This 118-nucleotide RNA from Cupriavidus metallidurans belongs to the Rfam family "Betaproteobacteria-1 RNA".

RNA sequence: CGCUCCAUUGGUCGGCUAGAAGACGGCAGCGAUGGAGGGAGAUUGGACGCUGUGGGGAAAGAGCUGAGACGUCCAACACGCAGGCGAAGAUAGUGCGUGGCUCGAAUGACUGUCGGAA
Dot-bracket structure: (.((((((((...............[[[[)))))))).)....((((((]]]].......[[[[.....)))))).[[[[[.......((((((]]]]]]]]].....))))))....
Numbered sequence: 001c002g003c004u005c006c007a008u009u010g011g012u013c014g015g016c017u018a019g020a021a022g023a024c025g026g027c028a029g030c031g032a033u034g035g036a037g038g039g040a041g042a043u044u045g046g047a048c049g050c051u052g053u054g055g056g057g058a059a060a061g062a063g064c065u066g067a068g069a070c071g072u073c074c075a076a077c078a079c080g081c082a083g084g085c086g087a088a089g090a091u092a093g094u095g096c097g098u099g100g101c102u103c104g105a106a107u108g109a110c111u112g113u114c115g116g117a118a
Stems, first nucleotide, its partner, number of pairs: 001039001003037008026053004044075006061103004077099005089114006